Plant signal recognition particle RNA: a 305-nucleotide RNA from Medicago truncatula. The source organism's lineage runs through Eukaryota, Embryophyta, rosids, fabids and Medicago. By type it is a non-coding RNA gene. The family is grouped with related families in Rfam's "SRP clan".

[Rfam]
RNA sequence: GCUGAGUUGAUUAACACCAACUUGUGACCCAUGUGGGAGCACCAAGGUGAUGGAACAUGGCUGGUUUGCUUAGCGGGUUGGGCUGUAGGGUACACUAUGCUGGCCUGCCCACUCCAAGUUGAGAGUUGGGCCAUGGGAUUUGGGCGAAGGCUCAGAUCUCCUGGUCACUAGAAUGGAGGGAUCCGCAUGAGGCUGGUUUUACAGAGCAGUGAACACUUCCUUCUCUUGACAGUGGAGGGAUCACAGGCUGCAGUAUUCUUGGCUUAUAUGGCCUGGUGAGCCUAGCACACUGAACCAUCACUUUU
Number, nucleotide and partner (000 for none) at each position: 001g040002c039003u038004g023005a022006g021007u020008u019009g018010a000011u016012u000013a000014a000015c000016a011017c000018c009019a008020a007021c006022u005023u004024g000025u000026g000027a000028c037029c036030c035031a000032u000033g000034u000035g030036g029037g028038a003039g002040c001041a000042c000043c000044a304045a303046g302047g301048u300049g299050a298051u297052g296053g295054a000055a000056c292057a291058u289059g288060g000061c285062u284063g283064g282065u000066u280067u000068g000069c000070u279071u278072a277073g000074c275075g274076g273077g272078u271079u270080g265081g264082g263083c262084u000085g259086u000087a000088g257089g000090g256091u255092a254093c000094a000095c000096u000097a000098u000099g000100c000101u250102g249103g248104c247105c246106u245107g244108c000109c239110c238111a000112c237113u236114c235115c234116a233117a000118g230119u229120u228121g227122a226123g225124a224125g223126u000127u000128g000129g166130g165131c164132c163133a162134u000135g160136g159137g158138a157139u156140u155141u154142g153143g152144g151145c150146g000147a000148a000149g000150g145151c144152u143153c142154a141155g140156a139157u138158c137159u136160c135161c000162u133163g132164g131165u130166c129167a000168c000169u000170a000171g000172a000173a000174u000175g220176g219177a218178g217179g216180g000181a000182u000183c000184c000185g000186c211187a210188u209189g000190a000191g000192g000193c204194u203195g202196g000197u000198u000199u000200u000201a000202c195203a194204g193205a000206g000207c000208a000209g188210u187211g186212a000213a000214c000215a000216c179217u178218u177219c176220c175221u000222u000223c125224u124225c123226u122227u121228g120229a119230c118231a000232g000233u116234g115235g114236a113237g112238g110239g109240a000241u000242c000243a000244c107245a106246g105247g104248c103249u102250g101251c000252a000253g000254u092255a091256u090257u088258c000259u085260u000261g000262g083263c082264u081265u080266a000267u000268a000269u000270g079271g078272c077273c076274u075275g074276g000277u072278g071279a070280g066281c000282c064283u063284a062285g061286c000287a000288c059289a058290c000291u057292g056293a000294a000295c053296c052297a051298u050299c049300a048301c047302u046303u045304u044305u000